[Rfam]
RNA sequence: GCGAACGGUAUUCAACAGCUAAUAAUACGCAACGACGAUAUUAUUGCUCGAGAAUACCCUUCGC
Numbered sequence: 001g002c003g004a005a006c007g008g009u010a011u012u013c014a015a016c017a018g019c020u021a022a023u024a025a026u027a028c029g030c031a032a033c034g035a036c037g038a039u040a041u042u043a044u045u046g047c048u049c050g051a052g053a054a055u056a057c058c059c060u061u062c063g064c
Base pairs, nucleotide, nucleotide: 008057009056010055011054012053013052017048018047019046021045022044023043024042025041026040027039

Shown here is a 64-nucleotide RNA sequence from Ancylostoma caninum, a member of the family "mir-234 microRNA precursor family". It scores 65 bits against the family's covariance model. The source organism's lineage runs through Eukaryota, Chromadorea, Strongyloidea, Ancylostomatidae and Ancylostoma. Its Rfam clan is "mir-137 clan". A reference for the family is Lim et al. (2003), "The microRNAs of Caenorhabditis elegans", Genes Dev.